Shown here is a 95-nucleotide RNA from Pseudooceanicola lipolyticus, a member of the family "Rhodo-rpoB RNA". Rfam classes the family as a cis-regulatory element. The family's consensus secondary structure is taken from published work.
[Rfam]
RNA sequence: GGAUCGGGAAGGCAGCCAGUCGGGGCGGCUGCCAUGGAUUGAUCCUAACCGCCCAUCUCGAAGGGCCAGGAUGCCAGUGCCCGGCGGCAGUCCUG
Numbered sequence: 001g002g003a004u005c006g007g008g009a010a011g012g013c014a015g016c017c018a019g020u021c022g023g024g025g026c027g028g029c030u031g032c033c034a035u036g037g038a039u040u041g042a043u044c045c046u047a048a049c050c051g052c053c054c055a056u057c058u059c060g061a062a063g064g065g066c067c068a069g070g071a072u073g074c075c076a077g078u079g080c081c082c083g084g085c086g087g088c089a090g091u092c093c094u095g
Base pairs, nucleotide, nucleotide: 001045002044003043004042005041011033012032013031014030015029016028017027067095068094069093070092071091072089073088074087075086